[Rfam]
RNA sequence: AUUUAAGUUUUCUAGGGUUCCGCAGCUUGUAGAUGGCAGGUCCGAGAGAAAACACACAGUUGACUGUGUACACGGAAGGAUAAAAGCCUGGGAGAU
Number, nucleotide and partner (000 for none) at each position: 001a000002u000003u000004u000005a000006a000007g053008u052009u051010u050011u049012c048013u000014a000015g043016g042017g000018u000019u000020c040021c039022g037023c035024a034025g000026c032027u031028u000029g000030u000031a027032g026033a000034u024035g023036g000037c022038a000039g021040g020041u000042c016043c015044g000045a000046g000047a000048g012049a011050a010051a009052a008053c007054a069055c068056a067057c066058a065059g064060u000061u000062g000063a000064c059065u058066g057067u056068g055069u054070a000071c091072a000073c094074g000075g000076a000077a089078g088079g087080a000081u000082a000083a000084a000085a000086g000087c079088c078089u077090g000091g071092g000093a000094g073095a000096u000

This 96-nucleotide sequence from Clostridium botulinum belongs to the Rfam family "Guanidine-I riboswitch aptamer". The organism belongs to Clostridium botulinum B, within Bacteria. On this family, see Trachman RJ 3rd and Ferre-D'Amare, RNA 2021: "An uncommon [K(+)(Mg(2+))2] metal ion triad imparts stability and selectivity to the Guanidine-I riboswitch". The sequence is in the family's curated seed alignment.